[Rfam]
RNA sequence: AUCCUAGUGCAGGUGCUUUACACGUAUCAGUGAGGAGAAAUCCGAGAUCGUGUUUUUGCUGGUUGAAAACUACCACCUGACCGCUUCAAGCAAGCCUCAUCGCAUGCUUGGGAAUUUUUGAAACCACACACU
Numbered sequence: 001a002u003c004c005u006a007g008u009g010c011a012g013g014u015g016c017u018u019u020a021c022a023c024g025u026a027u028c029a030g031u032g033a034g035g036a037g038a039a040a041u042c043c044g045a046g047a048u049c050g051u052g053u054u055u056u057u058g059c060u061g062g063u064u065g066a067a068a069a070c071u072a073c074c075a076c077c078u079g080a081c082c083g084c085u086u087c088a089a090g091c092a093a094g095c096c097u098c099a100u101c102g103c104a105u106g107c108u109u110g111g112g113a114a115u116u117u118u119u120g121a122a123a124c125c126a127c128a129c130a131c132u
Stems, first nucleotide, its partner, number of pairs: 020053005026048003034043003085112008094103002